[Rfam]
RNA sequence: UAAAAGUAGAGCUCCGAGACUACAUUAAAAACGAGGUACAUCCUGAAAAACCAUAAUAGUAAGGACUAAC
Numbered sequence: 001u002a003a004a005a006g007u008a009g010a011g012c013u014c015c016g017a018g019a020c021u022a023c024a025u026u027a028a029a030a031a032c033g034a035g036g037u038a039c040a041u042c043c044u045g046a047a048a049a050a051c052c053a054u055a056a057u058a059g060u061a062a063g064g065a066c067u068a069a070c
Stems, first nucleotide, its partner, number of pairs: 006023004035052003042064002

The record is a 70-nucleotide sequence from Tenacibaculum sp. MAR_2010_89, which matches "DUF805 RNA" in Rfam. The organism belongs to Tenacibaculum, within Bacteria.